[Rfam]
RNA: Small nucleolar SNORD12/SNORD106
RNA sequence: GCUGGUCAUGUGAUGACAGAAUUUUUUUCCCCGGCAGAUCGACCAUGUUGAUUGCAUGCUCUAAGCCAGUUUUGUCUGAUACACCAGC
Numbered sequence: 001g002c003u004g005g006u007c008a009u010g011u012g013a014u015g016a017c018a019g020a021a022u023u024u025u026u027u028u029c030c031c032c033g034g035c036a037g038a039u040c041g042a043c044c045a046u047g048u049u050g051a052u053u054g055c056a057u058g059c060u061c062u063a064a065g066c067c068a069g070u071u072u073u074g075u076c077u078g079a080u081a082c083a084c085c086a087g088c
Stems, first nucleotide, its partner, number of pairs: 001088006008080001